Rfam assigns this 175-nucleotide RNA from Bacillus taeanensis to the family "glmS glucosamine-6-phosphate activated ribozyme aptamer". It scores 118 bits against the family's covariance model. On this family, see Winkler et al., Nature 2004: "Control of gene expression by a natural metabolite-responsive ribozyme". About the family: This entry contains a glucosamine-6-phosphate activated ribozyme that is found in the mRNA for GlmS. GlmS is an enzyme that uses fructose-6-phosphate and glutamine to generate glucosamine-6-phosphate. The ribozyme catalyses self cleavage of the glmS mRNA that is thought to regulate GlmS activity. The base pairs follow the family's consensus structure, which is taken from published work.
[Rfam]
RNA sequence: AUUAUUUUUAAAGCGCCUGGACUAUUCUGAAACGGUUAAAUGAAGAGUAGUUGACGAGGAAGAGGUUUAUCGAAUUUCGGCGGAUGCCUCUCGAUUGCCUGUUAUCACAAUCGAAAUACCAGCUGUCUUAAAACAAGGAGGCGACUUCUUGCACAAAAGCAGUUGGAAUGAUAAC
Numbered sequence: 001a002u003u004a005u006u007u008u009u010a011a012a013g014c015g016c017c018u019g020g021a022c023u024a025u026u027c028u029g030a031a032a033c034g035g036u037u038a039a040a041u042g043a044a045g046a047g048u049a050g051u052u053g054a055c056g057a058g059g060a061a062g063a064g065g066u067u068u069a070u071c072g073a074a075u076u077u078c079g080g081c082g083g084a085u086g087c088c089u090c091u092c093g094a095u096u097g098c099c100u101g102u103u104a105u106c107a108c109a110a111u112c113g114a115a116a117u118a119c120c121a122g123c124u125g126u127c128u129u130a131a132a133a134c135a136a137g138g139a140g141g142c143g144a145c146u147u148c149u150u151g152c153a154c155a156a157a158a159g160c161a162g163u164u165g166g167a168a169u170g171a172u173a174a175c
Stems, first nucleotide, its partner, number of pairs: 020052008061091005070080004092113006120165007134151007